[Rfam]
RNA sequence: UCUCCGGGUCCCCAAUGCAACCCCGGGUGAGCCUGCAGUAUUUUCCUUAUAUGAUUGGGCCCCAGGGCUUGCGACGGCGCCUGCCCGGAGCCUAAGAGGAUUAUAAAGGGUCCUGUGAAGUGGGGCCAGGGCCCCGGGU
Numbered sequence: 001u002c003u004c005c006g007g008g009u010c011c012c013c014a015a016u017g018c019a020a021c022c023c024c025g026g027g028u029g030a031g032c033c034u035g036c037a038g039u040a041u042u043u044u045c046c047u048u049a050u051a052u053g054a055u056u057g058g059g060c061c062c063c064a065g066g067g068c069u070u071g072c073g074a075c076g077g078c079g080c081c082u083g084c085c086c087g088g089a090g091c092c093u094a095a096g097a098g099g100a101u102u103a104u105a106a107a108g109g110g111u112c113c114u115g116u117g118a119a120g121u122g123g124g125g126c127c128a129g130g131g132c133c134c135c136g137g138g139u
Stems, first nucleotide, its partner, number of pairs: 002138001004137005010131003021125004055095006062088002067084002071080003
This 139-nucleotide sequence from Myotis myotis belongs to the Rfam family "small Cajal body-specific RNA 17". Pairs were carried over by alignment from the consensus structure, which is taken from published work. scaRNAs are a specific class of small nuclear RNAs which localise to the Cajal bodies and guide the modification of RNA polymerase II transcribed spliceosomal RNAs U1, U2, U4, U5 and U12. The complete human U12-22/U4-8 scaRNA is composed of two tandem C/D box domains (termed U12-22 and U4-8). It is annotated as a small Cajal body RNA. On this family, see Tycowski et al., Curr Biol 2004: "Guide RNAs with 5' Caps and Novel Box C/D snoRNA-like Domains for Modification of snRNAs in Metazoa". Rfam 15.1 lists 262 matches to the family in 128 species.